The record is a 118-nucleotide sequence from Mangrovactinospora gilvigrisea, which matches "SAM (S-adenosyl methionine) riboswitch aptamer" in Rfam. NCBI's taxonomy places the organism under Bacteria, Actinomycetota, Kitasatosporales, Streptomycetaceae, Mangrovactinospora. Rfam links the family to the GO terms S-adenosylmethionine metabolic process and regulation of gene expression.
[Rfam]
RNA sequence: GGUCACGAGCGACAGCGACUUCGGCCCCGGCCUGCUGUCCGGCAACCCUCCGUCCGUGGCGGGGUGCCCCGGGUGAUGACCAGGCCGCAGCCAGCGCCGGCUGCGGCAAGCGCGGACC
Dot-bracket structure: ((((....(.((((((......((......)).)))))))(((..(((.((......))..))).))).........))))..(((((((((......)))))))))...........

It scores 107 bits against the family's covariance model.